[Rfam]
RNA: mir-24 microRNA precursor family
Organism: Scleropages formosus
RNA sequence: ACCUCUUGUACCUACUGAACUGGUAUCAGUGUGCCCUCGGAGAGCUGGCUCAGUUCAGCAGGAACAGGAG
Numbered sequence: 001a002c003c004u005c006u007u008g009u010a011c012c013u014a015c016u017g018a019a020c021u022g023g024u025a026u027c028a029g030u031g032u033g034c035c036c037u038c039g040g041a042g043a044g045c046u047g048g049c050u051c052a053g054u055u056c057a058g059c060a061g062g063a064a065c066a067g068g069a070g
Stems, first nucleotide, its partner, number of pairs: 003070004008065002011062003015058009026048005